[Rfam]
RNA sequence: UGAUGAUCAAGCGGAAAGAAUCAUGAGCGCAUGACACGCUUGCGUGCUCAGGCGCUCAUGAUUCGAGAUGUGCCCUACAUGAGCAUGAAGCCAUGCGAAGCAGGGCGAGAAUGCGAAUGUAGGGAGGAUUGCGAGAGCGCGAAGCGCGGAGCAAUCCGUGAUCAUCA
Numbered sequence: 001u002g003a004u005g006a007u008c009a010a011g012c013g014g015a016a017a018g019a020a021u022c023a024u025g026a027g028c029g030c031a032u033g034a035c036a037c038g039c040u041u042g043c044g045u046g047c048u049c050a051g052g053c054g055c056u057c058a059u060g061a062u063u064c065g066a067g068a069u070g071u072g073c074c075c076u077a078c079a080u081g082a083g084c085a086u087g088a089a090g091c092c093a094u095g096c097g098a099a100g101c102a103g104g105g106c107g108a109g110a111a112u113g114c115g116a117a118u119g120u121a122g123g124g125a126g127g128a129u130u131g132c133g134a135g136a137g138c139g140c141g142a143a144g145c146g147c148g149g150a151g152c153a154a155u156c157c158g159u160g161a162u163c164a165u166c167a
Base pairs, nucleotide, nucleotide: 001167002166003165004164005163006162007161012070013069018064019063020062021061022060023059024058025057026056027055028054029053030052032050033049035046036045037044038043073124074123075122076121077120078119079118080117083114084113085112086111090106091105092104094102095101096100126157127156128155129154130153131152132151137147138146139145140144
RNA: Clostridiales-1 RNA